Rfam assigns this 130-nucleotide RNA sequence from Caldanaerobacter subterraneus to the family "c-di-AMP riboswitch aptamer (ydaO/yuaA leader)". Pairs were carried over by alignment from the consensus structure.

[Rfam]
RNA sequence: UUUGCAAUCUUGCCGAAUCCGAAAGGUACGGAGGAACCGCUUUUUGGGGUUAAUCUGCGGAUUCCCGCAGUAGGGAUGCCUUCUGUCCCGCACCCGACAGCUAACUCCGGAGGCAUUAAAGGAAGGAGAU
Numbered sequence: 001u002u003u004g005c006a007a008u009c010u011u012g013c014c015g016a017a018u019c020c021g022a023a024a025g026g027u028a029c030g031g032a033g034g035a036a037c038c039g040c041u042u043u044u045u046g047g048g049g050u051u052a053a054u055c056u057g058c059g060g061a062u063u064c065c066c067g068c069a070g071u072a073g074g075g076a077u078g079c080c081u082u083c084u085g086u087c088c089c090g091c092a093c094c095c096g097a098c099a100g101c102u103a104a105c106u107c108c109g110g111a112g113g114c115a116u117u118a119a120a121g122g123a124a125g126g127a128g129a130u
Stems, first nucleotide, its partner, number of pairs: 011115004019026002029109005038046002047095003055070004073089004